[Rfam]
RNA sequence: CCCUUAAGUAAUAAAAUGUCUGUUUUGGUCCCUUAACUUUAGUUAAAGUAACGGUUUGGUCCCUUCUGUUAAUUUAAUUCAAAAAAAUGUUAAAUUUUUGGUCCCUUAACUUAUUUAAUUAGUAUUAGUUUGGUUCCUUAACUUAUUUAAUUAGUAUUAGUUUGGUCCCUAAAUUUAACAUUUUUUUGAAUUAAAUUAACAGAAAGGACCAAACCGAUACUUUAAAUAAAGUUAAGGGACCGAAACAGACUUUUUAUUACUUAUGGGA
Number, nucleotide and partner (000 for none) at each position: 001c000002c266003c265004u000005u263006a262007a261008g260009u000010a000011a000012u000013a000014a000015a000016a000017u000018g000019u000020c000021u000022g000023u245024u244025u243026u000027g241028g240029u239030c000031c237032c236033u235034u234035a233036a232037c231038u230039u229040u228041a227042g000043u225044u000045a223046a222047a221048g000049u000050a000051a000052c000053g000054g000055u000056u000057u000058g000059g000060u000061c000062c000063c000064u000065u000066c000067u000068g000069u000070u000071a000072a000073u000074u000075u000076a000077a000078u000079u000080c000081a000082a000083a000084a000085a000086a000087a000088u000089g000090u000091u000092a000093a000094a000095u000096u000097u000098u000099u000100g000101g000102u000103c000104c000105c000106u000107u000108a000109a000110c000111u000112u000113a000114u000115u000116u000117a000118a000119u000120u000121a000122g000123u000124a000125u000126u000127a000128g000129u000130u000131u000132g000133g000134u000135u000136c000137c000138u000139u000140a000141a000142c000143u000144u000145a000146u000147u000148u000149a000150a000151u000152u000153a000154g000155u000156a000157u000158u000159a000160g000161u000162u000163u000164g000165g000166u000167c000168c000169c000170u000171a000172a000173a000174u000175u000176u000177a000178a000179c000180a000181u000182u000183u000184u000185u000186u000187u000188g000189a000190a000191u000192u000193a000194a000195a000196u000197u000198a000199a000200c000201a000202g000203a000204a000205a000206g000207g000208a000209c000210c000211a000212a000213a000214c000215c000216g000217a000218u000219a000220c000221u047222u046223u045224a000225a043226a000227u041228a040229a039230a038231g037232u036233u035234a034235a033236g032237g031238g000239a029240c028241c027242g000243a025244a024245a023246c000247a000248g000249a000250c000251u000252u000253u000254u000255u000256a000257u000258u000259a000260c008261u007262u006263a005264u000265g003266g002267g000268a000
Shown here is a 268-nucleotide RNA sequence from Medicago truncatula, a member of the family "MIR2655 microRNA precursor family". Its family is annotated with RISC complex and miRNA-mediated post-transcriptional gene silencing in the Gene Ontology.